About this RNA: Shown here is an 84-nucleotide RNA sequence from Pullulanibacillus camelliae, a member of the family "c-di-GMP-I riboswitch aptamer". The match comes from Rfam's covariance-model search (78 bits).
RNA sequence: UUUUCGAACGGGCAAACUUAUUGAAAAAUAAGGACGCAAAACUACGGGCCUAAGGGAUUUUCCUAUGGUCGCCGAGUCACCGAA
Numbered sequence: 001u002u003u004u005c006g007a008a009c010g011g012g013c014a015a016a017c018u019u020a021u022u023g024a025a026a027a028a029u030a031a032g033g034a035c036g037c038a039a040a041a042c043u044a045c046g047g048g049c050c051u052a053a054g055g056g057a058u059u060u061u062c063c064u065a066u067g068g069u070c071g072c073c074g075a076g077u078c079a080c081c082g083a084a
Stems, first nucleotide, its partner, number of pairs: 012037002017032006041077003045074003048069003055063003